RNA sequence: GCCACUGCUCGCACCCGCUGCUAGCGCCUAGUGCCGGUCCUGAUCACUUGGCGCCGUCAGUGGGUGUGAGCGGUGGCUG
Numbered sequence: 001g002c003c004a005c006u007g008c009u010c011g012c013a014c015c016c017g018c019u020g021c022u023a024g025c026g027c028c029u030a031g032u033g034c035c036g037g038u039c040c041u042g043a044u045c046a047c048u049u050g051g052c053g054c055c056g057u058c059a060g061u062g063g064g065u066g067u068g069a070g071c072g073g074u075g076g077c078u079g
Base pairs, nucleotide, nucleotide: 004074005073006072007071008070009069010068011067012066013065014064015063016062017061018060019059020058022056024054025053026052027051028050

The family of this 79-nucleotide RNA sequence from Myotis lucifugus is "mir-9198 microRNA precursor family". The family's consensus secondary structure was predicted with RNAalifold.